Notes:
c-di-GMP-I riboswitch aptamer: a 95-nucleotide sequence from Longimicrobium terrae. Rfam describes the family as follows. GEMM was predicted in a large-scale screen for bacterial structured RNA regulatory elements. Lineage of the source: Bacteria > Pseudomonadati > Longimicrobiales > Longimicrobiaceae > Longimicrobium.

[Rfam]
RNA sequence: CACCGAAAACGGCAAACCCGUCGAAAGCCGGGGACGCAAAGCCACGAGGCUACCGCGCGCGCUCCACGCGCCGCUACGCCAGUCGGGCCGCCGAC
Numbered sequence: 001c002a003c004c005g006a007a008a009a010c011g012g013c014a015a016a017c018c019c020g021u022c023g024a025a026a027g028c029c030g031g032g033g034a035c036g037c038a039a040a041g042c043c044a045c046g047a048g049g050c051u052a053c054c055g056c057g058c059g060c061g062c063u064c065c066a067c068g069c070g071c072c073g074c075u076a077c078g079c080c081a082g083u084c085g086g087g088c089c090g091c092c093g094a095c
Base pairs, nucleotide, nucleotide: 012037013036017032018031019030020029022027041088042087043086045085046084047083048080049079050078055074056073057072